The family of this 78-nucleotide RNA sequence from Nothocercus julius is "mir-26 microRNA precursor family". The base pairs follow the family's consensus structure, which was predicted with RNAalifold. Lineage of the source: Eukaryota > Chordata > Amniota > Theropoda > Nothocercus. Its family is annotated with RISC complex and miRNA-mediated post-transcriptional gene silencing in the Gene Ontology.

RNA sequence: CCGCGGCCCGGUUCAAGUAAUCCAGGAUAGGCUGUUACCAUCCCCGGCCUAUUCUCGAUUACUUGUCCCGGGAGGCGG
Numbered sequence: 001c002c003g004c005g006g007c008c009c010g011g012u013u014c015a016a017g018u019a020a021u022c023c024a025g026g027a028u029a030g031g032c033u034g035u036u037a038c039c040a041u042c043c044c045c046g047g048c049c050u051a052u053u054c055u056c057g058a059u060u061a062c063u064u065g066u067c068c069c070g071g072g073a074g075g076c077g078g
Stems, first nucleotide, its partner, number of pairs: 002077003007072005014065009024055010